The record is a 79-nucleotide RNA sequence from Leptospirillum ferrooxidans, which matches "Fluoride riboswitch aptamer (crcB RNA motif)" in Rfam. The base pairs follow the family's consensus structure, which is taken from published work. Its family is annotated with response to fluoride and positive regulation of gene expression in the Gene Ontology. The match comes from Rfam's covariance-model search (38 bits).
[Rfam]
RNA sequence: CGAAUCAUGGGCGAUGGGGUUCGCCUGAACGGCAGCGGUGUUUGAUAUGACACCGGAUGAUGAUGACCCCUACUUUAAA
Numbered sequence: 001c002g003a004a005u006c007a008u009g010g011g012c013g014a015u016g017g018g019g020u021u022c023g024c025c026u027g028a029a030c031g032g033c034a035g036c037g038g039u040g041u042u043u044g045a046u047a048u049g050a051c052a053c054c055g056g057a058u059g060a061u062g063a064u065g066a067c068c069c070c071u072a073c074u075u076u077a078a079a
Stems, first nucleotide, its partner, number of pairs: 010025004016070006033059001